Manganese Mn2+ riboswitch aptamer (yybP-ykoY): a 131-nucleotide RNA from alpha proteobacterium U9-1i. Rfam's curators write: This RNA was originally discovered in E. coli during a large scale screen and was named SraF. The family was later found to exist upstream of related families of protein genes in many bacteria, including the the yybP and ykoK genes in B. subtilis. Pairs were carried over by alignment from the consensus structure. A search with the family's covariance model found it, with a score of 54 bits.
RNA sequence: CCUACGCUUCGUUACUCGGGGAGUAGCCGGCCGCAUCGGCGCGGCGUUUGCGUCAACACACUUGCCCAUCCGGGCAUGGCGCAGACAGCGGAGCAAAGCUCCGCAUUGGCGAGACCGACGACGUUCCGCUU
Numbered sequence: 001c002c003u004a005c006g007c008u009u010c011g012u013u014a015c016u017c018g019g020g021g022a023g024u025a026g027c028c029g030g031c032c033g034c035a036u037c038g039g040c041g042c043g044g045c046g047u048u049u050g051c052g053u054c055a056a057c058a059c060a061c062u063u064g065c066c067c068a069u070c071c072g073g074g075c076a077u078g079g080c081g082c083a084g085a086c087a088g089c090g091g092a093g094c095a096a097a098g099c100u101c102c103g104c105a106u107u108g109g110c111g112a113g114a115c116c117g118a119c120g121a122c123g124u125u126c127c128g129c130u131u
Stems, first nucleotide, its partner, number of pairs: 031044003046086010063076005
Dot-bracket structure: ..............................(((........))).((((((((((.......(((((....))))))))))))))).............................................